[Rfam]
RNA sequence: UUUUUGGAACGAAAAAACACAGUCUGGUUGGUAGUCCAGGCACUAGGAUGACUCUAUAUUUCAAGAGCGCCGUGUCAGUAGCCUUCCCCCCUCGGGAUGUCCAUCGUUUCCGAUUUAAAU
Numbered sequence: 001u002u003u004u005u006g007g008a009a010c011g012a013a014a015a016a017a018c019a020c021a022g023u024c025u026g027g028u029u030g031g032u033a034g035u036c037c038a039g040g041c042a043c044u045a046g047g048a049u050g051a052c053u054c055u056a057u058a059u060u061u062c063a064a065g066a067g068c069g070c071c072g073u074g075u076c077a078g079u080a081g082c083c084u085u086c087c088c089c090c091c092u093c094g095g096g097a098u099g100u101c102c103a104u105c106g107u108u109u110c111c112g113a114u115u116u117a118a119a120u
Base pairs, nucleotide, nucleotide: 004112006110007109008108009107010106011105022041023040024039025038026037027036042075043074046071047070085097086096087095088094